[Rfam]
RNA sequence: AGGCUGAUGAUGAGAACCUUAUAUUGUUCUGAAGAAAGGUGAUGAAUUAAAAAUCAUGCUCAAUAGGAUUACACUGAAGCCC
Numbered sequence: 001a002g003g004c005u006g007a008u009g010a011u012g013a014g015a016a017c018c019u020u021a022u023a024u025u026g027u028u029c030u031g032a033a034g035a036a037a038g039g040u041g042a043u044g045a046a047u048u049a050a051a052a053a054u055c056a057u058g059c060u061c062a063a064u065a066g067g068a069u070u071a072c073a074c075u076g077a078a079g080c081c082c
Stems, first nucleotide, its partner, number of pairs: 002081003005076002008073002